[Rfam]
RNA sequence: GGCAGCUUUGAAUGAUGUUACUUCUUAUUACUUAAAGAAGACAUCAGAUAAAUCUGUGCU
Dot-bracket structure: .((((.((((..((((((..((((((........))))))))))))..)))).))))...
This 60-nucleotide RNA from Salmo salar belongs to the Rfam family "mir-723 microRNA precursor family". The family's consensus secondary structure was predicted with RNAalifold. The family has 3 seed sequences and 207 matches in Rfam 15.1. It is one of the family's seed sequences. Taxonomically the source falls in Salmo (Eukaryota, Craniata, Gnathostomata, Salmonidae).